Shown here is an 85-nucleotide sequence from Carassius auratus, a member of the family "mir-729 microRNA precursor family". Pairs were carried over by alignment from the consensus structure, which was predicted with RNAalifold. Lineage of the source: Eukaryota > Opisthokonta > Eumetazoa > Cyprininae > Carassius. The family has 2 seed sequences and 43 matches in Rfam 15.1.
[Rfam]
RNA sequence: GCCAUCCUUUGACCCGGGGUUGUAUUGUAACCAAGCUACGUAUCUGAGUUGUAUGGGUAUGAUACGACCUGGGUUACAGGAAGGU
Numbered sequence: 001g002c003c004a005u006c007c008u009u010u011g012a013c014c015c016g017g018g019g020u021u022g023u024a025u026u027g028u029a030a031c032c033a034a035g036c037u038a039c040g041u042a043u044c045u046g047a048g049u050u051g052u053a054u055g056g057g058u059a060u061g062a063u064a065c066g067a068c069c070u071g072g073g074u075u076a077c078a079g080g081a082a083g084g085u
Stems, first nucleotide, its partner, number of pairs: 001085003005081003012075001014073002017070013031056003035052002037048001039046001